The record is a 179-nucleotide RNA, which matches "Clostridiales-1 RNA" in Rfam. The family's RNA type in Rfam is small RNA. The family has 194 seed sequences and 1,172 matches in Rfam 15.1.
RNA sequence: AUGAUGAUGCCAGGGGCAAAAGAGUGGAAAUCCGGAACAGGCUUGCCAGCAGGAGGAUUUUUGGACUUGGGACCUGCUAAAAACAUGAGUAAGAAGCCAGUAUUUAAAGAAAAAUAAGCGGAUUAGGGAUGUUUUUAGAAUUGCGGAAGUGCAAAGCAUACAGCAAUUCGGUAUCAUCU
Numbered sequence: 001a002u003g004a005u006g007a008u009g010c011c012a013g014g015g016g017c018a019a020a021a022g023a024g025u026g027g028a029a030a031u032c033c034g035g036a037a038c039a040g041g042c043u044u045g046c047c048a049g050c051a052g053g054a055g056g057a058u059u060u061u062u063g064g065a066c067u068u069g070g071g072a073c074c075u076g077c078u079a080a081a082a083a084c085a086u087g088a089g090u091a092a093g094a095a096g097c098c099a100g101u102a103u104u105u106a107a108a109g110a111a112a113a114a115u116a117a118g119c120g121g122a123u124u125a126g127g128g129a130u131g132u133u134u135u136u137a138g139a140a141u142u143g144c145g146g147a148a149g150u151g152c153a154a155a156g157c158a159u160a161c162a163g164c165a166a167u168u169c170g171g172u173a174u175c176a177u178c179u
Base pairs, nucleotide, nucleotide: 005176006175007174008173009172010171011170014074015073017071021067022066025063026062027061028060029059030058031057032056033055038049040047041046079136080135081134082133083132084131085130086129090125091124092123096119097118101116102115103114104113105112138169139168140167141166142165143164144163149159150158151157152156